This 88-nucleotide sequence from Prosthecodimorpha hirschii belongs to the Rfam family "DUF3800-VII RNA". It scores 59 bits against the family's covariance model.
RNA sequence: GGCAGGCACGCGCCGGAUUGUCUCGGAGUUGCCUUCGGGCGGCAGCACCCUUCGCGGUGUGGAUCACGAGCCGGGGGCCUGCCCUUUA
Numbered sequence: 001g002g003c004a005g006g007c008a009c010g011c012g013c014c015g016g017a018u019u020g021u022c023u024c025g026g027a028g029u030u031g032c033c034u035u036c037g038g039g040c041g042g043c044a045g046c047a048c049c050c051u052u053c054g055c056g057g058u059g060u061g062g063a064u065c066a067c068g069a070g071c072c073g074g075g076g077g078c079c080u081g082c083c084c085u086u087u088a
Stems, first nucleotide, its partner, number of pairs: 001083007011075001013074004022070004028043006046059004